[Rfam]
RNA sequence: CACGACGGGUCGCCGAAACGGUCACGCCAUGACCGGGCCGAGCAGCCCUUGGGGUGAAGUCGCAGCAGCGGCCGGGCAACUUCGCCAGCCCGAACCCGACAGGUCAUCCUUCGUAGGCGGCAGACGAAGGGUUG
Numbered sequence: 001c002a003c004g005a006c007g008g009g010u011c012g013c014c015g016a017a018a019c020g021g022u023c024a025c026g027c028c029a030u031g032a033c034c035g036g037g038c039c040g041a042g043c044a045g046c047c048c049u050u051g052g053g054g055u056g057a058a059g060u061c062g063c064a065g066c067a068g069c070g071g072c073c074g075g076g077c078a079a080c081u082u083c084g085c086c087a088g089c090c091c092g093a094a095c096c097c098g099a100c101a102g103g104u105c106a107u108c109c110u111u112c113g114u115a116g117g118c119g120g121c122a123g124a125c126g127a128a129g130g131g132u133u134g
Stems, first nucleotide, its partner, number of pairs: 011119004019035006037114002040111003043051002052097003060071004074091004
RNA: c-di-AMP riboswitch aptamer (ydaO/yuaA leader)
Organism: Streptomyces nodosus